[Rfam]
RNA sequence: AACAAGGGCUGUUAUGAGUGGCACACAUAGGGCACCUUGAUUGCUCUACAUGCGGAAUCAACAUCAGGAGAUUUCAGAAGAAUAAUUUUUUGGUAUCUGGGCAGCCAGUGAUCAUUGGUCCCAGUACCCAU
Number, nucleotide and partner (000 for none) at each position: 001a000002a000003c000004a000005a000006g000007g000008g000009c077010u023011g022012u021013u020014a019015u000016g000017a000018g000019u014020g013021g012022c011023a010024c052025a051026c000027a000028u048029a047030g046031g045032g044033c043034a042035c000036c000037u000038u000039g000040a000041u000042u034043g033044c032045u031046c030047u029048a028049c000050a000051u025052g024053c000054g075055g074056a073057a072058u071059c070060a000061a000062c000063a000064u000065c000066a000067g000068g000069a000070g059071a058072u057073u056074u055075c054076a000077g009078a000079a000080g000081a000082a000083u000084a000085a000086u000087u000088u000089u000090u000091u000092g000093g000094u000095a000096u000097c000098u000099g129100g128101g127102c000103a000104g125105c124106c000107a000108g121109u000110g120111a119112u118113c117114a000115u000116u000117g113118g112119u111120c110121c108122c000123a000124g105125u104126a000127c101128c100129c099130a000131u000